[Rfam]
RNA sequence: UCUGCUAAAGUUUCUCUUAGAAUAGCAGUAACGUUUUUAGUUUUAUAAGGUAAAGCAAAUAAUUAGAGGCCUAGAGGUUAAAACAACUUUUAUUUAUUCUUAAACUUUAAAUAUAUAAGAAGUCCUUGUUUUUUAAUUAAACGUAGACAUUUAAAUGUAUUGUUACUAGUAGGCUAUUUUUAGUAAGCAGAACUAGCAAUGCAGAAUAAACUAAACGUAGGGUUAAGGUGCUAGAAUGCACGCUUAUUAGACACUACAAAAGGUGUUAGUUUAUCUAGACAGCAGAAUAGUAGCUAUAGAAGUUGGAAUCUGCUAAGAAGUGUGUAACAACUUACCUGCCAAAUAAACUAGCCCUAAAAAUAGAUAGCGCUCAAGCGUGCUACCUAUACUCUGCUGCUAGAGUAGAAAUUAUGCUCUAGCAAGUAGGCAGGCGUAGAGGUUUGUAACAAAGCCUUAGGGGUAACUCUAGGUAGAAUAGCCUCUAGUGCAGAU
Numbered sequence: 001u002c003u004g005c006u007a008a009a010g011u012u013u014c015u016c017u018u019a020g021a022a023u024a025g026c027a028g029u030a031a032c033g034u035u036u037u038u039a040g041u042u043u044u045a046u047a048a049g050g051u052a053a054a055g056c057a058a059a060u061a062a063u064u065a066g067a068g069g070c071c072u073a074g075a076g077g078u079u080a081a082a083a084c085a086a087c088u089u090u091u092a093u094u095u096a097u098u099c100u101u102a103a104a105c106u107u108u109a110a111a112u113a114u115a116u117a118a119g120a121a122g123u124c125c126u127u128g129u130u131u132u133u134u135a136a137u138u139a140a141a142c143g144u145a146g147a148c149a150u151u152u153a154a155a156u157g158u159a160u161u162g163u164u165a166c167u168a169g170u171a172g173g174c175u176a177u178u179u180u181u182a183g184u185a186a187g188c189a190g191a192a193c194u195a196g197c198a199a200u201g202c203a204g205a206a207u208a209a210a211c212u213a214a215a216c217g218u219a220g221g222g223u224u225a226a227g228g229u230g231c232u233a234g235a236a237u238g239c240a241c242g243c244u245u246a247u248u249a250g251a252c253a254c255u256a257c258a259a260a261a262g263g264u265g266u267u268a269g270u271u272u273a274u275c276u277a278g279a280c281a282g283c284a285g286a287a288u289a290g291u292a293g294c295u296a297u298a299g300a301a302g303u304u305g306g307a308a309u310c311u312g313c314u315a316a317g318a319a320g321u322g323u324g325u326a327a328c329a330a331c332u333u334a335c336c337u338g339c340c341a342a343a344u345a346a347a348c349u350a351g352c353c354c355u356a357a358a359a360a361u362a363g364a365u366a367g368c369g370c371u372c373a374a375g376c377g378u379g380c381u382a383c384c385u386a387u388a389c390u391c392u393g394c395u396g397c398u399a400g401a402g403u404a405g406a407a408a409u410u411a412u413g414c415u416c417u418a419g420c421a422a423g424u425a426g427g428c429a430g431g432c433g434u435a436g437a438g439g440u441u442u443g444u445a446a447c448a449a450a451g452c453c454u455u456a457g458g459g460g461u462a463a464c465u466c467u468a469g470g471u472a473g474a475a476u477a478g479c480c481u482c483u484a485g486u487g488c489a490g491a492u
Base pairs, nucleotide, nucleotide: 001431002430003429004428005427006426011024013022015020027167028166029165030164031163032162033161041120042119043118044117045116046115047114053108054106055105060102061101062100065097067095068094069093072092073091074090075089076088077087079085122148123147124146127143128142129141130140173197174196175195176194178192179191180190181189203212204211217394218393219392220391221390223388227384228383229382236381238380241377242376243375261355262354263353265352266351267350268349269348270347271346272345273344274343282339283338284337285336288312289311290310294306295305313317318333322331323330395421396420397419398418399417400416401415402414403413432487434484435483436482437481438480439479440478441477443476444475451471452470457466458465459464

The record is a 492-nucleotide part of an RNA from Melanomma pulvis-pyrius, which matches "Eukaryotic large subunit ribosomal RNA" in Rfam. Rfam links the family to the GO terms structural constituent of ribosome and ribosome. The match comes from Rfam's covariance-model search (2400 bits). Lineage of the source: Eukaryota > Fungi > Dothideomycetes > Melanommataceae > Melanomma pulvis-pyrius.